[Rfam]
RNA sequence: GGCCCAAAUUUGAAGUAGAGUAGAUUAGAAAGGUCAUCUGACCUAAACUACUCUACUUAGAGUUUGUGCCC
Numbered sequence: 001g002g003c004c005c006a007a008a009u010u011u012g013a014a015g016u017a018g019a020g021u022a023g024a025u026u027a028g029a030a031a032g033g034u035c036a037u038c039u040g041a042c043c044u045a046a047a048c049u050a051c052u053c054u055a056c057u058u059a060g061a062g063u064u065u066g067u068g069c070c071c
Stems, first nucleotide, its partner, number of pairs: 001070003005066005011060001013058011025046002032043004
RNA: mir-5928 microRNA precursor family